[Rfam]
About this RNA: This 53-nucleotide RNA from Rhizomicrobium sp. SCGC AG-212-E05 belongs to the Rfam family "serC leader". Rfam's curators write: This family is a putative regulatory RNA structure that is found upstream of the serC-serA operon in some alpha-proteobacteria. The final stem of the structure overlaps the ribosome binding site of the serC reading frame. For this family Rfam cites "Evidence for a second class of S-adenosylmethionine riboswitches and other regulatory RNA motifs in alpha-proteobacteria" (Corbino et al., Genome Biol, 2005). Pairs were carried over by alignment from the consensus structure.
RNA sequence: CGGCGGGCCACACCUCCCCAACGAGGUGCUAUCAUUCUGGAAGGAAUGAACCG
Numbered sequence: 001c002g003g004c005g006g007g008c009c010a011c012a013c014c015u016c017c018c019c020a021a022c023g024a025g026g027u028g029c030u031a032u033c034a035u036u037c038u039g040g041a042a043g044g045a046a047u048g049a050a051c052c053g
Base pairs, nucleotide, nucleotide: 011028012027013026014025015024016023033048034047035046036045037044038043